The record is a 165-nucleotide RNA sequence from Caldithrix abyssi, which matches "Group II catalytic intron D1-D4-7" in Rfam. About the family: Group II introns are found in rRNA, tRNA and mRNA of organelles in fungi, plants and protists, and also in mRNA in bacteria.
[Rfam]
RNA sequence: CCUGGUAUAUCCCUACCAGUACCUUAGGAAGGCAUGCUACCGUUCGGCAGGUUCACAGCUUGCCGUUGAAAUGGCAACGGGGUGUGAAGCCCUUCUGGUAAUAUACCGAAUCGGGUUGAGUUCGCGAGAAUGAAACCCUUCUCCGAAUCCCACGGAGUCAAAGGG
Numbered sequence: 001c002c003u004g005g006u007a008u009a010u011c012c013c014u015a016c017c018a019g020u021a022c023c024u025u026a027g028g029a030a031g032g033c034a035u036g037c038u039a040c041c042g043u044u045c046g047g048c049a050g051g052u053u054c055a056c057a058g059c060u061u062g063c064c065g066u067u068g069a070a071a072u073g074g075c076a077a078c079g080g081g082g083u084g085u086g087a088a089g090c091c092c093u094u095c096u097g098g099u100a101a102u103a104u105a106c107c108g109a110a111u112c113g114g115g116u117u118g119a120g121u122u123c124g125c126g127a128g129a130a131u132g133a134a135a136c137c138c139u140u141c142u143c144c145g146a147a148u149c150c151c152a153c154g155g156a157g158u159c160a161a162a163g164g165g
Base pairs, nucleotide, nucleotide: 002019003018004017005016006015007014028095029094030093031092032091033086034085035084036083037082038081040079113138114137115136116135122129123128141157142156143155144154145153

NCBI's taxonomy places the organism under Bacteria, Calditrichota, Calditrichales, Caldithrix, Caldithrix abyssi. Gene Ontology term of the family: Group II intron splicing.